The family of this 104-nucleotide RNA is "Group II catalytic intron D1-D4-2". The pairing is the family consensus, mapped onto this sequence.

[Rfam]
RNA sequence: GAAGGAAAGGCCCUUCGGAAACGGCUUGCACGAGCAGUUUCCAAACCGCCCUGAGCUGCUGCGGUCAAAAGCCGUGGUGGUGAGCGUCAGGAAACGGUACGGGC
Numbered sequence: 001g002a003a004g005g006a007a008a009g010g011c012c013c014u015u016c017g018g019a020a021a022c023g024g025c026u027u028g029c030a031c032g033a034g035c036a037g038u039u040u041c042c043a044a045a046c047c048g049c050c051c052u053g054a055g056c057u058g059c060u061g062c063g064g065u066c067a068a069a070a071g072c073c074g075u076g077g078u079g080g081u082g083a084g085c086g087u088c089a090g091g092a093a094a095c096g097g098u099a100c101g102g103g104c
Base pairs, nucleotide, nucleotide: 001016002015003014004013005012017042018041019040020039021038022037024035025034026033027032047103049091050090052089053088054087055081056080058078059077060076062074063073064072065071096100
Gene Ontology term of the family: Group II intron splicing. About the family: Group II introns are found in rRNA, tRNA and mRNA of organelles in fungi, plants and protists, and also in mRNA in bacteria.